This 129-nucleotide RNA from Clostridium sp. N3C belongs to the Rfam family "Ribosomal protein L10 leader". NCBI's taxonomy places the organism under Bacteria, Bacillota, Clostridia, Eubacteriales, Clostridium. Pairs were carried over by alignment from the consensus structure, which was predicted with CMfinder. The match comes from Rfam's covariance-model search (70 bits). Rfam describes the family as follows. This family is a putative r-protein leader autoregulatory structure found in B. subtilis and other low-GC Gram-positive bacteria.
RNA sequence: AUUAAAUAAGGUAAUAAACCGUAGACAGUAGGUGCCAUAAGGCGUAACGGGCUCCAACCUACCGAGGGUUCCGAUACAUUAAGUUAGUUAGGUCUCUCUGCGUCUGCGGGGGACUUUAUUAUUGUGUAA
Numbered sequence: 001a002u003u004a005a006a007u008a009a010g011g012u013a014a015u016a017a018a019c020c021g022u023a024g025a026c027a028g029u030a031g032g033u034g035c036c037a038u039a040a041g042g043c044g045u046a047a048c049g050g051g052c053u054c055c056a057a058c059c060u061a062c063c064g065a066g067g068g069u070u071c072c073g074a075u076a077c078a079u080u081a082a083g084u085u086a087g088u089u090a091g092g093u094c095u096c097u098c099u100g101c102g103u104c105u106g107c108g109g110g111g112g113a114c115u116u117u118a119u120u121a122u123u124g125u126g127u128a129a
Base pairs, nucleotide, nucleotide: 028062029061030060031059032058033057034043035042036041092114093113094112095111096110097109099108100107101106
Dot-bracket structure: ...........................(((((((((....))).............)))))).............................((((((.(((....)))))))))...............